[Rfam]
RNA sequence: CACUCAGUGCAGGGAGUCCCUCAGCCCGGAUUGAGGGAGGGUGAAGGCCAGGCUGAGGGACCCCACCAGUGCACA
Numbered sequence: 001c002a003c004u005c006a007g008u009g010c011a012g013g014g015a016g017u018c019c020c021u022c023a024g025c026c027c028g029g030a031u032u033g034a035g036g037g038a039g040g041g042u043g044a045a046g047g048c049c050a051g052g053c054u055g056a057g058g059g060a061c062c063c064c065a066c067c068a069g070u071g072c073a074c075a
Stems, first nucleotide, its partner, number of pairs: 006070001008068002013064002016061011028049002031046002035042001

The family of this 75-nucleotide RNA from Cnephaeus nilssonii is "mir-9193 microRNA precursor family". Lineage of the source: Eukaryota > Mammalia > Boreoeutheria > Vespertilionidae > Cnephaeus. Rfam links the family to the GO terms RISC complex and miRNA-mediated post-transcriptional gene silencing. The family has 2 seed sequences and 6,008 matches in Rfam 15.1.